[Rfam]
RNA: che1 RNA
Organism: Streptomyces sp. Tue6028
RNA sequence: UGGACAGGGGGGUCUCUGCCGUUCGGCGGAGCCUGUCCAGCAGGUUGUGCGUGAUGUGUGUCAGGCGCGACCAGUGGUUGUCGCUCGGGGGUGAUCGCCG
Numbered sequence: 001u002g003g004a005c006a007g008g009g010g011g012g013u014c015u016c017u018g019c020c021g022u023u024c025g026g027c028g029g030a031g032c033c034u035g036u037c038c039a040g041c042a043g044g045u046u047g048u049g050c051g052u053g054a055u056g057u058g059u060g061u062c063a064g065g066c067g068c069g070a071c072c073a074g075u076g077g078u079u080g081u082c083g084c085u086c087g088g089g090g091g092u093g094a095u096c097g098c099c100g
Stems, first nucleotide, its partner, number of pairs: 001039008014031007043072008